[Rfam]
RNA sequence: UACUGGAGCGGGGAAGGAUUUCGCAUCAACGGCAAUCGUAUGCGAGUUGUUCGGAUACUGAGCACAACGUUACACCGUUUUGUUAGGAAAGUGAAGGUGUGCCGGCGGCUUUUCCUUCGGGGAUUGUUGACUGGCCAUUACUGAAAAGGGGCAACAGAGAACCUGGGAUUACAUUCCAAAAAGAAAUUGCAAGUGGGAAACAUACAAAAACUAAGAAAAAGUUUCGGCUUUUUUUACACACUAGUGGAAAUGCAAAACACUUGCCAGGUAACCAAUCAAUCCUCCCACGGUGAGCUUUCUUUUCACCAUAAUCCACAUCUCCAACUUGUUGGGGCCUGGGCCUUUUACUUCUCGCGUUGUUCGGAGCGAGGGCUCAGGAUUGAAAAAUGCAGCUCUCCCUACGUCCUGUUUUGUUGUGAGUUCUGCGCAUUAAAGCAAAAACCUGGGGUGUUAUUGGAAAACACCGCGACCGCAGUAGAUUCAACGAUUUACUGUGCGACCGAUCAAAAAACAAAGUCCCAACUGCAGACCGUACUCAUCACCGCAUCAGGUCCCCAAGCAUAGAAUGCUCUGGUACA
Number, nucleotide and partner (000 for none) at each position: 001u576002a575003c574004u573005g000006g000007a000008g000009c000010g556011g555012g554013g553014a000015a000016g536017g535018a000019u000020u000021u045022c044023g043024c042025a041026u040027c000028a000029a000030c038031g037032g000033c000034a000035a000036u000037c031038g030039u000040a026041u025042g024043c023044g022045a021046g000047u000048u000049g000050u000051u000052c532053g531054g530055a000056u158057a000058c157059u000060g000061a000062g152063c151064a080065c000066a078067a000068c077069g076070u000071u000072a000073c000074a000075c000076c069077g068078u066079u000080u064081u000082g000083u000084u000085a000086g000087g000088a000089a142090a000091g000092u000093g000094a000095a000096g000097g000098u000099g000100u000101g000102c000103c000104g000105g000106c000107g000108g000109c000110u000111u000112u000113u000114c000115c000116u000117u000118c000119g000120g000121g000122g000123a000124u000125u000126g000127u000128u000129g000130a000131c000132u000133g000134g000135c000136c000137a000138u000139u000140a000141c000142u089143g000144a000145a000146a000147a000148g000149g000150g000151g063152c062153a000154a000155c000156a000157g058158a056159g000160a000161a000162c000163c183164u182165g000166g177167g176168a000169u000170u000171a000172c000173a000174u000175u000176c167177c166178a000179a000180a000181a000182a164183g163184a000185a000186a000187u528188u527189g526190c525191a000192a524193g523194u522195g000196g520197g518198a517199a000200a000201c000202a000203u254204a000205c252206a251207a000208a000209a000210a000211c000212u000213a000214a000215g000216a000217a000218a000219a000220a000221g000222u000223u000224u000225c000226g000227g000228c000229u000230u000231u000232u000233u000234u000235u000236a000237c000238a000239c000240a000241c000242u000243a000244g000245u000246g000247g000248a000249a000250a000251u206252g205253c000254a203255a000256a000257a000258c000259a000260c000261u000262u000263g000264c446265c445266a444267g443268g442269u441270a000271a000272c000273c427274a000275a000276u000277c000278a421279a000280u420281c000282c418283u000284c000285c413286c000287a411288c000289g307290g306291u305292g304293a303294g000295c000296u000297u000298u000299c000300u000301u000302u000303u293304c292305a291306c290307c289308a000309u000310a000311a000312u383313c382314c000315a380316c000317a000318u000319c000320u000321c000322c000323a000324a000325c000326u000327u000328g000329u000330u000331g000332g000333g000334g000335c000336c000337u000338g000339g000340g000341c000342c000343u000344u000345u000346u000347a000348c000349u000350u000351c000352u000353c000354g000355c000356g000357u000358u000359g000360u000361u000362c000363g000364g000365a000366g000367c000368g000369a000370g000371g000372g000373c000374u000375c000376a000377g000378g000379a000380u315381u000382g313383a312384a000385a000386a000387a000388u000389g000390c408391a407392g406393c000394u000395c403396u000397c000398c000399c000400u000401a000402c000403g395404u000405c000406c392407u391408g390409u000410u000411u287412u000413g285414u000415u000416g000417u000418g282419a000420g280421u278422u000423c000424u000425g000426c000427g273428c000429a000430u000431u000432a000433a000434a000435g000436c000437a000438a000439a000440a000441a269442c268443c267444u266445g265446g264447g000448g000449u000450g000451u000452u000453a000454u000455u000456g000457g000458a000459a000460a000461a000462c000463a000464c000465c000466g000467c000468g000469a000470c000471c000472g000473c000474a000475g000476u000477a000478g000479a000480u000481u000482c000483a000484a000485c000486g000487a000488u000489u000490u000491a000492c000493u000494g000495u000496g000497c000498g000499a000500c000501c000502g000503a000504u000505c000506a000507a000508a000509a000510a000511a000512c000513a000514a000515a000516g000517u198518c197519c000520c196521a000522a194523c193524u192525g190526c189527a188528g187529a000530c054531c053532g052533u000534a000535c017536u016537c000538a000539u000540c000541a000542c551543c550544g000545c000546a000547u000548c000549a000550g543551g542552u000553c013554c012555c011556c010557a000558a570559g569560c568561a567562u000563a000564g000565a000566a000567u561568g560569c559570u558571c000572u000573g004574g003575u002576a001577c000578a000

The family of this 578-nucleotide part of an RNA from Angomonas deanei is "Eukaryotic large subunit ribosomal RNA". Gene Ontology terms of the family: structural constituent of ribosome and ribosome. The organism belongs to Angomonas, within Eukaryota.